[Rfam]
RNA sequence: CUAUGUUGAGAAUAUUUAACAUGGCGGAAGGAG
Numbered sequence: 001c002u003a004u005g006u007u008g009a010g011a012a013u014a015u016u017u018a019a020c021a022u023g024g025c026g027g028a029a030g031g032a033g
Stems, first nucleotide, its partner, number of pairs: 001024010
This 33-nucleotide RNA belongs to the Rfam family "L31-Firmicutes ribosomal protein leader". The sequence is in the family's curated seed alignment.